[Rfam]
RNA sequence: CCGACGUGAAAGACAUGGGUAGUGAGAUGUUGUCUGUUAAGAUUAGGCUUCGCCCUCCGCGGUGCAGGACCCUUCUUGGCGAGGGACGGACCACGAAGGACAGGUCGCAUCAUCUCACUACCUUGUCUUUGACUAAGGG
Number, nucleotide and partner (000 for none) at each position: 001c000002c000003g000004a000005c000006g000007u000008g000009a130010a129011a128012g127013a126014c125015a124016u000017g123018g122019g121020u000021a119022g118023u117024g116025a115026g114027a113028u112029g111030u000031u000032g000033u000034c000035u000036g000037u000038u000039a000040a000041g000042a000043u000044u000045a000046g000047g000048c000049u000050u000051c000052g000053c000054c000055c000056u000057c000058c000059g000060c000061g000062g000063u000064g000065c000066a000067g000068g000069a000070c000071c000072c000073u000074u000075c000076u000077u000078g000079g000080c000081g000082a000083g000084g000085g000086a000087c000088g000089g000090a000091c000092c000093a000094c000095g000096a000097a000098g000099g000100a000101c000102a000103g000104g000105u000106c000107g000108c000109a000110u000111c029112a028113u027114c026115u025116c024117a023118c022119u021120a000121c019122c018123u017124u015125g014126u013127c012128u011129u010130u009131g000132a000133c000134u000135a000136a000137g000138g000139g000

About this RNA:
The family of this 139-nucleotide RNA sequence from Tropilaelaps mercedesae is "mir-71 microRNA precursor family". Rfam 15.1 lists 372 matches to the family in 291 species. For this family Rfam cites "The silkworm (Bombyx mori) microRNAs and their expressions in multiple developmental stages" (Yu et al., PLoS One, 2008). Taxonomically the source falls in Tropilaelaps (Eukaryota, Metazoa, Chelicerata, Arachnida). Gene Ontology terms of the family: miRNA-mediated post-transcriptional gene silencing and RISC complex.